A member of the RNA family "c-di-GMP-I riboswitch aptamer" from Paenibacillus monticola, 90 nucleotides long.
RNA sequence: CAUGUAUAAUAGCAAACUGUCCGAAAGGGCGGGACGCAAAGUCCAGGAAUCUAAAGCGCUGCGAAGCGCAAUGAUCGUCCGACUGCCAUG
Numbered sequence: 001c002a003u004g005u006a007u008a009a010u011a012g013c014a015a016a017c018u019g020u021c022c023g024a025a026a027g028g029g030c031g032g033g034a035c036g037c038a039a040a041g042u043c044c045a046g047g048a049a050u051c052u053a054a055a056g057c058g059c060u061g062c063g064a065a066g067c068g069c070a071a072u073g074a075u076c077g078u079c080c081g082a083c084u085g086c087c088a089u090g
Stems, first nucleotide, its partner, number of pairs: 012037002017032006040084004046080003049075003056069004
A search with the family's covariance model found it, with a score of 64 bits.
GEMM was predicted in a large-scale screen for bacterial structured RNA regulatory elements.
Lineage of the source: Bacteria > Bacillati > Bacillota > Caryophanales > Paenibacillus.